About this RNA
Shown here is a 74-nucleotide sequence from Bacteriovorax stolpii, a member of the family "tRNA". Rfam 15.1 lists 5,335,975 matches to the family in 14,413 species. The organism belongs to Bacteriovorax, within Bacteria. The family's consensus secondary structure is taken from published work. The family's RNA type in Rfam is transfer RNA. It scores 68 bits against the family's covariance model.
[Rfam]
RNA sequence: GGUCUCUUAGCUCAGUUGGUUAGAGCAUCUCCCUUUUAAGGAGAGGGUCCUGCGUUCGAGUCGCAGAGAGAUCA
Numbered sequence: 001g002g003u004c005u006c007u008u009a010g011c012u013c014a015g016u017u018g019g020u021u022a023g024a025g026c027a028u029c030u031c032c033c034u035u036u037u038a039a040g041g042a043g044a045g046g047g048u049c050c051u052g053c054g055u056u057c058g059a060g061u062c063g064c065a066g067a068g069a070g071a072u073c074a
Stems, first nucleotide, its partner, number of pairs: 001073007010026004028044005050066005